[Rfam]
RNA sequence: CUCCCCGAAAUAGCUUUAGGGCUAGCCUCAUGGUAAAGAGUAUAGGCGGUAGAGCUCUGAUCGGGCUAGGGCCCACACCGGGUACCGAACCUAGUCAAACUACGAAUGGCUAUACUUAUACAUGGGAGUCAGACUAUGAGUGAUAAGGCCCAUAGUCAAGAGGGAAACAGCCCAGACCACCGACUAAGGCCCCCAAUGCUGCAUUAAGUGGCAAAGGAUGUGGAGUUUCCAAAACAACCAGGAUGUUGGCUUAGAAGCAGCCACCAUUUAAAGAGUGCGUAAUAGCUCACUGGUCGAGAGACUCUGCGCCGAAAAUGUCCGGGGCUAAAAUGCAGAGCCGAAGUCGUGGCAAUGGUAGUAAUACCAUUGGGUAGGGGAGCGUUCUUAUUGGAUUGAAGCAGUACCGGAAGGAGCUGUGGACUGGUAAGAAGUGAGAAU
Numbered sequence: 001c002u003c004c005c006c007g008a009a010a011u012a013g014c015u016u017u018a019g020g021g022c023u024a025g026c027c028u029c030a031u032g033g034u035a036a037a038g039a040g041u042a043u044a045g046g047c048g049g050u051a052g053a054g055c056u057c058u059g060a061u062c063g064g065g066c067u068a069g070g071g072c073c074c075a076c077a078c079c080g081g082g083u084a085c086c087g088a089a090c091c092u093a094g095u096c097a098a099a100c101u102a103c104g105a106a107u108g109g110c111u112a113u114a115c116u117u118a119u120a121c122a123u124g125g126g127a128g129u130c131a132g133a134c135u136a137u138g139a140g141u142g143a144u145a146a147g148g149c150c151c152a153u154a155g156u157c158a159a160g161a162g163g164g165a166a167a168c169a170g171c172c173c174a175g176a177c178c179a180c181c182g183a184c185u186a187a188g189g190c191c192c193c194c195a196a197u198g199c200u201g202c203a204u205u206a207a208g209u210g211g212c213a214a215a216g217g218a219u220g221u222g223g224a225g226u227u228u229c230c231a232a233a234a235c236a237a238c239c240a241g242g243a244u245g246u247u248g249g250c251u252u253a254g255a256a257g258c259a260g261c262c263a264c265c266a267u268u269u270a271a272a273g274a275g276u277g278c279g280u281a282a283u284a285g286c287u288c289a290c291u292g293g294u295c296g297a298g299a300g301a302c303u304c305u306g307c308g309c310c311g312a313a314a315a316u317g318u319c320c321g322g323g324g325c326u327a328a329a330a331u332g333c334a335g336a337g338c339c340g341a342a343g344u345c346g347u348g349g350c351a352a353u354g355g356u357a358g359u360a361a362u363a364c365c366a367u368u369g370g371g372u373a374g375g376g377g378a379g380c381g382u383u384c385u386u387a388u389u390g391g392a393u394u395g396a397a398g399c400a401g402u403a404c405c406g407g408a409a410g411g412a413g414c415u416g417u418g419g420a421c422u423g424g425u426a427a428g429a430a431g432u433g434a435g436a437a438u
Base pairs, nucleotide, nucleotide: 001379002378003377004376005375006374011024012023013022014021015020026128027126028125029124030123031122032121037119038117039116040115041114042113043112044111045110047108052103053101054100058097059096060095063092064091065090069086070085071083072082073081074080132157133156134155135154136153137152138151140149141148162173163172164171177349178348179347180346182345183344184343188339189338190337197336199335200334201333202332203331204330216310217309220307221306222305223304224303225302226301227300228299229298237294238293239292240291241290243267244266245265248262249261250260268272273288277286278285350369351368352367353366354365355364356363357362380433382430383429384428385427386426387425388424389423390422391421398417399416400415401414402413404411405410
About this RNA
The record is a 438-nucleotide part of an RNA from Veillonella sp. oral taxon 780, which matches "Bacterial large subunit ribosomal RNA" in Rfam. Rfam links the family to the GO terms ribosome and structural constituent of ribosome. Rfam 15.1 lists 51,934 matches to the family in 10,816 species. The family's consensus secondary structure is taken from published work. For this family Rfam cites "Crystal structure of the ribosome at 5.5 A resolution" (Yusupov et al., Science, 2001).